[Rfam]
RNA: ALIL pseudoknot
RNA sequence: GGCAUAUUUUGCCAUGGCGGAGCUCGACCGCCGGUCGCGGCCAUGAUCAGCUUCAUUGACGAUCAUCGGGAGAUCUACGGGGUCGAGCCGAUCUGCAGGGUACUGCCGAUUGCCCCG
Numbered sequence: 001g002g003c004a005u006a007u008u009u010u011g012c013c014a015u016g017g018c019g020g021a022g023c024u025c026g027a028c029c030g031c032c033g034g035u036c037g038c039g040g041c042c043a044u045g046a047u048c049a050g051c052u053u054c055a056u057u058g059a060c061g062a063u064c065a066u067c068g069g070g071a072g073a074u075c076u077a078c079g080g081g082g083u084c085g086a087g088c089c090g091a092u093c094u095g096c097a098g099g100g101u102a103c104u105g106c107c108g109a110u111u112g113c114c115c116c117g
Stems, first nucleotide, its partner, number of pairs: 016032005078117005089112002092109002095106004